[Rfam]
Rfam assigns this 426-nucleotide sequence from Pseudolabrys sp. Root1462 to the family "Bacterial RNase P class A".
Pairs were carried over by alignment from the consensus structure, which is taken from published work.
By type it is a ribozyme.
It scores 290 bits against the family's covariance model.
The organism belongs to Pseudolabrys, within Bacteria.
Rfam links the family to the GO terms ribonuclease P activity, tRNA processing and dimeric ribonuclease P complex.
RNA sequence: UCAGUCGGCCGGACGGCCGCUCCGCGCCAAUGCCGAAAGGCGGCCGGAGAGGAAAGUCCGGGCUCCAUGGACGAACGGUGCCGGAUAACGUCCGGCGGGGAUGGCGCGGCGCAAGCCGUGUUGGCCUCAGGGAAAGUGCCACAGAAAACAGACCGCCUUGGCCGCGUUGUGUAUUGGCUCAAGGUAAGGGUGAAACGGUGGGGUAAGAGCCCACCGCGUUGUCAGCAAUGACAGCGGCACGGCAAACCCCACCGGGAGCAAAACCGAAUAGGAAUGACGCAGGAGCGCAAGCUCUAGGUCCGUCCGGGCCAGUCAUUCGGGUAGGUUGCUUGAGACGCCGGGUAACCGGCGGACUAGAGGAAUGGCCGUCACGUCUGCUUACGACAGCAGGCCAUACAAAACCCGGCUUAUAGGCUGGCUGAUACG
Numbered sequence: 001u002c003a004g005u006c007g008g009c010c011g012g013a014c015g016g017c018c019g020c021u022c023c024g025c026g027c028c029a030a031u032g033c034c035g036a037a038a039g040g041c042g043g044c045c046g047g048a049g050a051g052g053a054a055a056g057u058c059c060g061g062g063c064u065c066c067a068u069g070g071a072c073g074a075a076c077g078g079u080g081c082c083g084g085a086u087a088a089c090g091u092c093c094g095g096c097g098g099g100g101a102u103g104g105c106g107c108g109g110c111g112c113a114a115g116c117c118g119u120g121u122u123g124g125c126c127u128c129a130g131g132g133a134a135a136g137u138g139c140c141a142c143a144g145a146a147a148a149c150a151g152a153c154c155g156c157c158u159u160g161g162c163c164g165c166g167u168u169g170u171g172u173a174u175u176g177g178c179u180c181a182a183g184g185u186a187a188g189g190g191u192g193a194a195a196c197g198g199u200g201g202g203g204u205a206a207g208a209g210c211c212c213a214c215c216g217c218g219u220u221g222u223c224a225g226c227a228a229u230g231a232c233a234g235c236g237g238c239a240c241g242g243c244a245a246a247c248c249c250c251a252c253c254g255g256g257a258g259c260a261a262a263a264c265c266g267a268a269u270a271g272g273a274a275u276g277a278c279g280c281a282g283g284a285g286c287g288c289a290a291g292c293u294c295u296a297g298g299u300c301c302g303u304c305c306g307g308g309c310c311a312g313u314c315a316u317u318c319g320g321g322u323a324g325g326u327u328g329c330u331u332g333a334g335a336c337g338c339c340g341g342g343u344a345a346c347c348g349g350c351g352g353a354c355u356a357g358a359g360g361a362a363u364g365g366c367c368g369u370c371a372c373g374u375c376u377g378c379u380u381a382c383g384a385c386a387g388c389a390g391g392c393c394a395u396a397c398a399a400a401a402c403c404c405g406g407c408u409u410a411u412a413g414g415c416u417g418g419c420u421g422a423u424a425c426g
Stems, first nucleotide, its partner, number of pairs: 001422010011411001012370007020049005027042001054409003058406005063258004073304002076254005081095005096130001097128004131249002136247002138243003153189002155185007163177001197215006216238001217236008262327004272318006298310001300308002336351006